[Rfam]
RNA sequence: AGGCAGCCCCGAUUGUCCAACCAACGAUGGCAUCGGCGGUGUUGCUUUGCUCGGAUAACAAAUCGAUCAAAGCUAUGGCUCCUUCAGAUCGGCUGAGAGCUCCGCUCCCUGAUGCUGAUCUAGUAGGCCUUAGCACACU
Numbered sequence: 001a002g003g004c005a006g007c008c009c010c011g012a013u014u015g016u017c018c019a020a021c022c023a024a025c026g027a028u029g030g031c032a033u034c035g036g037c038g039g040u041g042u043u044g045c046u047u048u049g050c051u052c053g054g055a056u057a058a059c060a061a062a063u064c065g066a067u068c069a070a071a072g073c074u075a076u077g078g079c080u081c082c083u084u085c086a087g088a089u090c091g092g093c094u095g096a097g098a099g100c101u102c103c104g105c106u107c108c109c110u111g112a113u114g115c116u117g118a119u120c121u122a123g124u125a126g127g128c129c130u131u132a133g134c135a136c137a138c139u
Base pairs, nucleotide, nucleotide: 002043003042004041005040007039008038009036010035011034012033014032015031016030017029073133074132075131078128079127080126086121087120088119089118090117092115093114097107098106099105
Rfam assigns this 139-nucleotide RNA sequence from Musa balbisiana to the family "Small nucleolar RNA snoR77". The family's consensus secondary structure was predicted with WAR. Rfam 15.1 lists 649 matches to the family in 221 species. By type it is an H/ACA-box small nucleolar RNA. Rfam links the family to the GO terms RNA processing and nucleolus.